[Rfam]
RNA sequence: CUUCUUCAUGUUUGUAGUUGCGAGAAGAGUUUUUACUUUGAUUUAUCUUCUCUAGUCCACGGCAGAUGCGGUCGAAAGGACCCACGUAAUUGCCUUUUUGGCAUGAGCAUGGCGUAUUCUAGGGAUAAGUCGCACCGCCUGUUUACUUUACAAGCAAAGGGCUUGGCAGGCGAGAGACCGGCAGCGCAAGCAAUGGUCCCGUGCGCGAGUGUGGGGGCAAAGACUAGGUCAAAUGAGGAAG
Numbered sequence: 001c002u003u004c005u006u007c008a009u010g011u012u013u014g015u016a017g018u019u020g021c022g023a024g025a026a027g028a029g030u031u032u033u034u035a036c037u038u039u040g041a042u043u044u045a046u047c048u049u050c051u052c053u054a055g056u057c058c059a060c061g062g063c064a065g066a067u068g069c070g071g072u073c074g075a076a077a078g079g080a081c082c083c084a085c086g087u088a089a090u091u092g093c094c095u096u097u098u099u100g101g102c103a104u105g106a107g108c109a110u111g112g113c114g115u116a117u118u119c120u121a122g123g124g125a126u127a128a129g130u131c132g133c134a135c136c137g138c139c140u141g142u143u144u145a146c147u148u149u150a151c152a153a154g155c156a157a158a159g160g161g162c163u164u165g166g167c168a169g170g171c172g173a174g175a176g177a178c179c180g181g182c183a184g185c186g187c188a189a190g191c192a193a194u195g196g197u198c199c200c201g202u203g204c205g206c207g208a209g210u211g212u213g214g215g216g217g218c219a220a221a222g223a224c225u226a227g228g229u230c231a232a233a234u235g236a237g238g239a240a241g
Base pairs, nucleotide, nucleotide: 001241002240003239004238005237006236007235008234009233012232013231014230015226016225017224018223019222059212060211061210062072065118066117067116068115069114070113081112082111089104090103093101094100110219131205132204133203134202135201136172137171138170139169140168141167142166143165176198177197178196179195184191185190
Dot-bracket structure: (((((((((..((((((((.......................................((([..((((((.]........((......((..((.....)).)).....[))))))))............(((((((((((((.....................))))))))...((((....((....))...))))..)))))....)))......]..)))))...))))))))))))

Rfam assigns this 241-nucleotide sequence from Phoenicibacter congonensis to the family "raiA RNA". The match comes from Rfam's covariance-model search (130 bits). The organism belongs to Phoenicibacter, within Bacteria.